[Rfam]
RNA sequence: GUUGCUUCUUACUGGUGAACUCUCUCAUAUUUGAUCAUGGUGGAUGUUUGUGUUUCCGAAGCAUAAAUUGAUUCUGAAUUUGCCAGUAUUGAACAGCUCUCUGUAAUUUCCUAUUGCAGUCUGCUACCCAUCUCCUGGUACACCC
Numbered sequence: 001g002u003u004g005c006u007u008c009u010u011a012c013u014g015g016u017g018a019a020c021u022c023u024c025u026c027a028u029a030u031u032u033g034a035u036c037a038u039g040g041u042g043g044a045u046g047u048u049u050g051u052g053u054u055u056c057c058g059a060a061g062c063a064u065a066a067a068u069u070g071a072u073u074c075u076g077a078a079u080u081u082g083c084c085a086g087u088a089u090u091g092a093a094c095a096g097c098u099c100u101c102u103g104u105a106a107u108u109u110c111c112u113a114u115u116g117c118a119g120u121c122u123g124c125u126a127c128c129c130a131u132c133u134c135c136u137g138g139u140a141c142a143c144c145c
Base pairs, nucleotide, nucleotide: 003063004062005061006060007059008058016050017049018048019047020046021044022043023042025040082139083138084137085136086135088133095125096124097123101119102118103117
Dot-bracket structure: ..((((((.......((((((((.(..............).))).))))).......))))))..................(((((.(......(((...(((.............)))...))).......).)))))......
small nucleolar RNA snoR137: a 145-nucleotide sequence from Cucumis melo. By type it is an H/ACA-box small nucleolar RNA. Its family is annotated with nucleolus and RNA processing in the Gene Ontology. Pairs were carried over by alignment from the consensus structure, which was predicted with RNAalifold.